[Rfam]
tRNA: a 112-nucleotide sequence from Penicillium argentinense.
Rfam links the family to the GO term triplet codon-amino acid adaptor activity.
The base pairs follow the family's consensus structure, which is taken from published work.
It is annotated as a transfer RNA.
NCBI's taxonomy places the organism under Eukaryota, Fungi, Pezizomycotina, leotiomyceta, Penicillium.
RNA sequence: GCACAUAUGGCCGAGUGGUCUAAGGCGACAGACUCAAGAUAUGUAUCUUACCUGUACAAGGUGGUAUUCUGUUCCUCAUCAGAGGGCGGGCGUUCGAAUCGCCCUGUGUGCA
Dot-bracket structure: (((((((..(((...........))).(((((...................................)))))...............(((((.......)))))))))))).